[Rfam]
RNA sequence: GUUCUUUGAGGUGGAGAUUUAGUGUCGCCACACACCUCCGCAAGGAGGUUAGCAAGAGAUGCAGGGACAGGCACACCUGCCAAAGGAC
Number, nucleotide and partner (000 for none) at each position: 001g088002u087003u086004c085005u084006u083007u082008g081009a000010g000011g031012u030013g029014g028015a000016g000017a000018u000019u000020u000021a000022g074023u073024g072025u071026c070027g000028c014029c013030a012031c011032a000033c056034a049035c048036c047037u046038c045039c044040g000041c000042a000043a000044g039045g038046a037047g036048g035049u034050u000051a000052g000053c000054a000055a000056g033057a000058g000059a000060u000061g080062c079063a078064g077065g076066g000067a000068c000069a000070g026071g025072c024073a023074c022075a000076c065077c064078u063079g062080c061081c008082a007083a006084a005085g004086g003087a002088c001
RNA: skipping-rope RNA